Rfam assigns this 64-nucleotide RNA from Mucilaginibacter robiniae to the family "DUF3800-VIII RNA". The family's RNA type in Rfam is small RNA. The match comes from Rfam's covariance-model search (60 bits). Bacteroidetes, Cyanobacteria, Firmicutes, Planctomycetes (1 example), Proteobacteria, Tenericutes (1 example). Lineage of the source: Bacteria > Sphingobacteriia > Sphingobacteriales > Sphingobacteriaceae > Mucilaginibacter. The family's consensus secondary structure is taken from published work.
[Rfam]
RNA sequence: AACGCCCUGUCAAAGUGAAGGCCCACGUUCCACGUGGGAGCUUUUGUAGCUUAGAUGGGGUUUU
Numbered sequence: 001a002a003c004g005c006c007c008u009g010u011c012a013a014a015g016u017g018a019a020g021g022c023c024c025a026c027g028u029u030c031c032a033c034g035u036g037g038g039a040g041c042u043u044u045u046g047u048a049g050c051u052u053a054g055a056u057g058g059g060g061u062u063u064u
Stems, first nucleotide, its partner, number of pairs: 001064002004061008013052004022038007